[Rfam]
RNA sequence: AUAAAAAACUCAGGAGAGUCUUUUCGUAAUGAAAUGAAAAGCGCCGAAGGUGUAAGCAGAAAACAGAUCUGCAAAUCUCUCAGGCAAAAGGAUGGAGGAAUGAAU
Number, nucleotide and partner (000 for none) at each position: 001a000002u000003a000004a000005a000006a000007a000008a000009c097010u096011c095012a000013g093014g000015a000016g000017a000018g000019u000020c041021u040022u039023u038024u037025c036026g035027u000028a000029a000030u000031g000032a000033a000034a000035u026036g025037a024038a023039a022040a021041g020042c000043g085044c084045c083046g081047a080048a000049g000050g079051u000052g077053u000054a000055a000056g072057c071058a070059g069060a068061a000062a000063a000064c000065a000066g000067a000068u060069c059070u058071g057072c056073a000074a000075a000076u000077c052078u000079c050080u047081c046082a000083g045084g044085c043086a000087a000088a000089a000090g000091g000092a000093u013094g000095g011096a010097g009098g000099a000100a000101u000102g000103a000104a000105u000